[Rfam]
RNA sequence: UUCCACAGCUACUGAUCAGCAGCUGUUCUUAUGGUGGCAUUUGUGGUAUUCCUCUGUGGGAAAUACACUGUUGAAUGAUUAAACACCUCUUUCUCAGCAAAACAGAGAGUGGGCAUGUGUGACAAACACAA
Number, nucleotide and partner (000 for none) at each position: 001u000002u000003c059004c058005a057006c056007a000008g000009c000010u000011a000012c000013u000014g000015a000016u000017c046018a000019g044020c043021a042022g041023c000024u039025g038026u000027u000028c000029u000030u000031a000032u000033g000034g000035u000036g000037g000038c025039a024040u000041u022042u021043g020044u019045g000046g017047u000048a000049u000050u000051c000052c000053u000054c000055u000056g006057u005058g004059g003060g000061a000062a000063a000064u000065a000066c000067a000068c000069u000070g000071u000072u000073g000074a000075a120076u119077g118078a000079u000080u000081a000082a000083a000084c000085a000086c113087c112088u111089c109090u108091u107092u106093c105094u104095c000096a000097g000098c000099a000100a000101a000102a000103c000104a094105g093106a092107g091108a090109g089110u000111g088112g087113g086114c000115a000116u000117g000118u077119g076120u075121g000122a000123c000124a000125a000126a000127c000128a000129c000130a000131a000